[Rfam]
RNA sequence: GGCCAGGGGGAAGGAAAAAGUAUAAACUAAAACAUAUAGUAUGGGCAAGCAGGGAACUGGGGAGAUUUGCACUUAACCGUGACC
Numbered sequence: 001g002g003c004c005a006g007g008g009g010g011a012a013g014g015a016a017a018a019a020g021u022a023u024a025a026a027c028u029a030a031a032a033c034a035u036a037u038a039g040u041a042u043g044g045g046c047a048a049g050c051a052g053g054g055a056a057c058u059g060g061g062g063a064g065a066u067u068u069g070c071a072c073u074u075a076a077c078c079g080u081g082a083c084c
Stems, first nucleotide, its partner, number of pairs: 001084002004081002007078002
Dot-bracket structure: ((.((.((....................................................................)).)).))
Description
Shown here is an 84-nucleotide RNA sequence from Lentivirus humimdef1, a member of the family "HIV gag stem loop 3 (GSL3)". Rfam describes the family as follows. This family consists of several HIV gag stem loop 3 (GSL3) sequences. Pairs were carried over by alignment from the consensus structure, which was predicted with PFOLD. By type it is a cis-regulatory element. The source organism's lineage runs through Viruses, Artverviricota, Revtraviricetes, Orthoretrovirinae and Lentivirus humimdef1. The literature on the family includes a 2004 paper in J Mol Biol by Damgaard et al., "RNA interactions in the 5' region of the HIV-1 genome". Rfam links the family to the GO term viral RNA genome packaging.